RNA sequence: CGCAGGAUCUUAACCCGUCAUUAAGCUUCCUGCUUCAUGAAUGGCGUCAUCCAGUCUUCUGGAUGCGAGUGGCUCCUGUCCACUCUGUUUGACGCCUCCCUGUUGACCACUUCAGAGCCGCCUCACGGGCGGCUCUUUUUUG
Numbered sequence: 001c002g003c004a005g006g007a008u009c010u011u012a013a014c015c016c017g018u019c020a021u022u023a024a025g026c027u028u029c030c031u032g033c034u035u036c037a038u039g040a041a042u043g044g045c046g047u048c049a050u051c052c053a054g055u056c057u058u059c060u061g062g063a064u065g066c067g068a069g070u071g072g073c074u075c076c077u078g079u080c081c082a083c084u085c086u087g088u089u090u091g092a093c094g095c096c097u098c099c100c101u102g103u104u105g106a107c108c109a110c111u112u113c114a115g116a117g118c119c120g121c122c123u124c125a126c127g128g129g130c131g132g133c134u135c136u137u138u139u140u141u142g
Base pairs, nucleotide, nucleotide: 001046002045003044005016006015022037024035025034027032050063051062052061053060067085068084069083070082071081072080091104092103093102094101114136115135116134117133118132119131120130121129122128123127
The record is a 142-nucleotide sequence from Salinarimonas ramus, which matches "Alphaproteobacterial sRNA BjrC1505" in Rfam. Rfam classes the family as a small RNA. Taxonomically the source falls in Salinarimonas (Bacteria, Pseudomonadati, Pseudomonadota, Alphaproteobacteria). For this family Rfam cites "Small RNAs of the Bradyrhizobium/Rhodopseudomonas lineage and their analysis" (Madhugiri et al., RNA Biol, 2012). It scores 106 bits against the family's covariance model.